Rfam assigns this 89-nucleotide RNA from Paenibacillus albus to the family "c-di-GMP-I riboswitch aptamer".
It scores 68 bits against the family's covariance model.
RNA sequence: UCUUGACAAAGGCAAACUGCUGGAAACAGUAGGACGCAAAGCCGUGGCCUAAGGCAUCAUUCGAUGCUAAGGUAGACAAGGCUGCCAGG
Numbered sequence: 001u002c003u004u005g006a007c008a009a010a011g012g013c014a015a016a017c018u019g020c021u022g023g024a025a026a027c028a029g030u031a032g033g034a035c036g037c038a039a040a041g042c043c044g045u046g047g048c049c050u051a052a053g054g055c056a057u058c059a060u061u062c063g064a065u066g067c068u069a070a071g072g073u074a075g076a077c078a079a080g081g082c083u084g085c086c087a088g089g
Stems, first nucleotide, its partner, number of pairs: 012037002017032006040083004045078002047073003054067004